[Rfam]
RNA sequence: CAGCCUGAAGUGAUGAUUUACAUUCAUGUCUCUUCUCUGAUAAAUCUCUUGAAGAAAACUCUGCAUAUCUGAUCAGGCUU
Numbered sequence: 001c002a003g004c005c006u007g008a009a010g011u012g013a014u015g016a017u018u019u020a021c022a023u024u025c026a027u028g029u030c031u032c033u034u035c036u037c038u039g040a041u042a043a044a045u046c047u048c049u050u051g052a053a054g055a056a057a058a059c060u061c062u063g064c065a066u067a068u069c070u071g072a073u074c075a076g077g078c079u080u
Base pairs, nucleotide, nucleotide: 002079003078004077005076